[Rfam]
RNA: Arthropod 7SK RNA
RNA sequence: GGAGGUGUGUGUCUGUGAUGGCACAACUGAACAUUGAUCGCUUUAGUUUGCAUCUAGGCAGAUCUGCUCAGUAAGUGGCGUCACGUGGUCGAUCCAGUAGCCAUGGAUAGUCUUGCGAUGCCGCAAAGCCACUGCUGUGGCUUUGUAGCCGCACGUUGGACAUCCAGGCUCCUCGAACGUCCGCCAUUUCCAAAUUUGGGGGGUUAUGGAUAGGUAAAUUUAGAACACCUCCAUAUACAGGCACUGUGAUCGAUGACAGUCUGCCAUUUUUUUA
Dot-bracket structure: ((((((((......(((((.......(((..((..((((((((..(......)..)))).))))))..)))........)))))............................................................................................................................................)))))))).......((((((((........)))))..))).........